The record is a 270-nucleotide RNA from Ammoniphilus oxalaticus, which matches "BsrG" in Rfam. It scores 65 bits against the family's covariance model. bsrE, bsrG and bsrH pair through intermolecular interactions with antisense sRNAs. They form type I toxin/antitoxin system that includes an mRNA encoding for a short, toxic peptide (bsrE, bsrG and bsrH) and an antitoxin that is comprised of an antisense RNA. bsrG encodes a 39-amino-acid toxin, and the 180 nucleotide antisense sRNA called SR4 acts as the antitoxin (they overlap by 123 nucleotides). SR4 interaction with the 3'UTR of bsrG RNA promotes bsrG degradation and inhibits its translation. BsrG interferes with cell envelope biosynthesis, causes membrane invaginations and delocalisation of the cell wall synthesis and initiates autolysis. bsrE RNA encodes 30 amino-acid toxin peptide. Its antitoxin gene, SR5 overlaps by 112 nucleotides at the 3' end of bsrE. SR5 also overlaps bsrG from nucleotide 163 to 52 (Rfam overlap check). The antitoxin SR5 promotes bsrE degradation but unlike SR4 it does not directly inhibits toxin mRNA translation.
RNA sequence: CAUAAUAGAAUCGGCUAACCUUGGGUGGUGGUCGGCUCACUCCUAUUCCAUUUGGAAGGGGGUGAAUUCGUGACAAUUUAUGAAGCUAUCACAGUUAUGCUAACGUUCGGAUUAUUCAUCGUAGCGUUACUUCGUCUUAUUGUCGCGCUGACCAAAAAGAAAUAGACCACCCUCGGACAAAGGUUAAUGGUCUAUUUCUGUUGCCAAACUGAGCUGAUCACCAUGAGGUGUCGUCUGUUAUGCAAUUUAUCGGGGUCAUAGGCAUUGAUA
Numbered sequence: 001c002a003u004a005a006u007a008g009a010a011u012c013g014g015c016u017a018a019c020c021u022u023g024g025g026u027g028g029u030g031g032u033c034g035g036c037u038c039a040c041u042c043c044u045a046u047u048c049c050a051u052u053u054g055g056a057a058g059g060g061g062g063u064g065a066a067u068u069c070g071u072g073a074c075a076a077u078u079u080a081u082g083a084a085g086c087u088a089u090c091a092c093a094g095u096u097a098u099g100c101u102a103a104c105g106u107u108c109g110g111a112u113u114a115u116u117c118a119u120c121g122u123a124g125c126g127u128u129a130c131u132u133c134g135u136c137u138u139a140u141u142g143u144c145g146c147g148c149u150g151a152c153c154a155a156a157a158a159g160a161a162a163u164a165g166a167c168c169a170c171c172c173u174c175g176g177a178c179a180a181a182g183g184u185u186a187a188u189g190g191u192c193u194a195u196u197u198c199u200g201u202u203g204c205c206a207a208a209c210u211g212a213g214c215u216g217a218u219c220a221c222c223a224u225g226a227g228g229u230g231u232c233g234u235c236u237g238u239u240a241u242g243c244a245a246u247u248u249a250u251c252g253g254g255g256u257c258a259u260a261g262g263c264a265u266u267g268a269u270a
Stems, first nucleotide, its partner, number of pairs: 001242005007236003012216005019176002023172003030167001032165001037065008072144006085100002109136002179199001181197001219230003248270006255263003